[Rfam]
Nucleotides: 089
Base pairs, nucleotide, nucleotide: 012037013036017032018031019030020029021028022027040083041082042081043080047079048078049075050074051073056069057068058067059066
Number, partner (000 for none) and nucleotide at each position: 001000g002000u003000u004000u005000c006000g007000c008000g009000u010000c011000c012037g013036c014000a015000a016000a017032c018031u019030u020029c021028u022027c023000g024000a025000a026000a027022g028021g029020g030019a031018a032017g033000g034000a035000c036013g037012c038000a039000a040083a041082g042081c043080u044000a045000u046000a047079g048078g049075g050074a051073c052000u053000u054000c055000c056069g057068u058067a059066c060000g061000u062000u063000c064000g065000c066059g067058u068057g069056c070000c071000a072000u073051g074050u075049c076000a077000g078048c079047c080043a081042g082041c083040u084000g085000c086000c087000g088000c089000c